[Rfam]
RNA sequence: AAGGCGUGAGUAUUACAUCAGGUACUGGUGAGCUUACUAAACCACCCAGUGCUUGUGUCAUACUUCCGCCUU
Numbered sequence: 001a002a003g004g005c006g007u008g009a010g011u012a013u014u015a016c017a018u019c020a021g022g023u024a025c026u027g028g029u030g031a032g033c034u035u036a037c038u039a040a041a042c043c044a045c046c047c048a049g050u051g052c053u054u055g056u057g058u059c060a061u062a063c064u065u066c067c068g069c070c071u072u
Stems, first nucleotide, its partner, number of pairs: 001072006009064004015058004021053008
Rfam assigns this 72-nucleotide sequence from Zootermopsis nevadensis to the family "mir-12 microRNA precursor family". On this family, see Marco et al., Genome Biol Evol 2010: "Functional shifts in insect microRNA evolution". The base pairs follow the family's consensus structure, which was predicted with RNAalifold. The match comes from Rfam's covariance-model search (71 bits).